[Rfam]
RNA sequence: UGCCGUGUGAGUCGUCCGUUCUCUUUCUCUGUUCUUGCUGGAUUGGCCGUUGUGCGGGUGGGGAGGUGUGUUCCGAUGGCUGGAUGUCGCCCUUAUGUGCGGGGAGGGGCGAAGACACGUUUGCGGUGUGACUGGUGGGGAGGAUGGGAGAGGGGGAUCAGGGUCAAGGCGAAGAUAUGAGCCUUCUCGAUGUCGUCCCCCUUUUUCUGACUUUUCGCUGGACCCCGUGGGCGGCGACACGGCGUCUCUCCAACCCUCUGCGCGCGAUAUCUUUCCAAGGCCUCGAGAUAUCCUCUUCAUCCCCUCCUGUGUCGGUCUCGCGGGAAUGGGAAGGCGAGAGGGAGAGGGUAAUGGAGGACAUCGUUACGCUCAUAGCUAUAGUUAU
Dot-bracket structure: ..............................................................................................................................................................................................................................................................................................(((.....((((((....(((......................................)))..))))))...))).......................
Numbered sequence: 001u002g003c004c005g006u007g008u009g010a011g012u013c014g015u016c017c018g019u020u021c022u023c024u025u026u027c028u029c030u031g032u033u034c035u036u037g038c039u040g041g042a043u044u045g046g047c048c049g050u051u052g053u054g055c056g057g058g059u060g061g062g063g064a065g066g067u068g069u070g071u072u073c074c075g076a077u078g079g080c081u082g083g084a085u086g087u088c089g090c091c092c093u094u095a096u097g098u099g100c101g102g103g104g105a106g107g108g109g110c111g112a113a114g115a116c117a118c119g120u121u122u123g124c125g126g127u128g129u130g131a132c133u134g135g136u137g138g139g140g141a142g143g144a145u146g147g148g149a150g151a152g153g154g155g156g157a158u159c160a161g162g163g164u165c166a167a168g169g170c171g172a173a174g175a176u177a178u179g180a181g182c183c184u185u186c187u188c189g190a191u192g193u194c195g196u197c198c199c200c201c202u203u204u205u206u207c208u209g210a211c212u213u214u215u216c217g218c219u220g221g222a223c224c225c226c227g228u229g230g231g232c233g234g235c236g237a238c239a240c241g242g243c244g245u246c247u248c249u250c251c252a253a254c255c256c257u258c259u260g261c262g263c264g265c266g267a268u269a270u271c272u273u274u275c276c277a278a279g280g281c282c283u284c285g286a287g288a289u290a291u292c293c294u295c296u297u298c299a300u301c302c303c304c305u306c307c308u309g310u311g312u313c314g315g316u317c318u319c320g321c322g323g324g325a326a327u328g329g330g331a332a333g334g335c336g337a338g339a340g341g342g343a344g345a346g347g348g349u350a351a352u353g354g355a356g357g358a359c360a361u362c363g364u365u366a367c368g369c370u371c372a373u374a375g376c377u378a379u380a381g382u383u384a385u
Stems, first nucleotide, its partner, number of pairs: 287362003295356006305348003
This 385-nucleotide part of an RNA from Dioszegia hungarica belongs to the Rfam family "RNase MRP". Rfam 15.1 lists 3,510 matches to the family in 2,315 species. The organism belongs to Dioszegia, within Eukaryota. The family's consensus secondary structure is taken from published work. It is annotated as a ribozyme.